[Rfam]
RNA: tRNA
Organism: Schistosoma curassoni
RNA sequence: CUGCUCGUGGCGCAAUGGUAGCGCGUCUGACUCCAGAUCAGAAGGUUGCGUGUUCAAUUCACGUCGGACUCA
Numbered sequence: 001c002u003g004c005u006c007g008u009g010g011c012g013c014a015a016u017g018g019u020a021g022c023g024c025g026u027c028u029g030a031c032u033c034c035a036g037a038u039c040a041g042a043a044g045g046u047u048g049c050g051u052g053u054u055c056a057a058u059u060c061a062c063g064u065c066g067g068a069c070u071c072a
Stems, first nucleotide, its partner, number of pairs: 003069001005067003010024004026042005048064005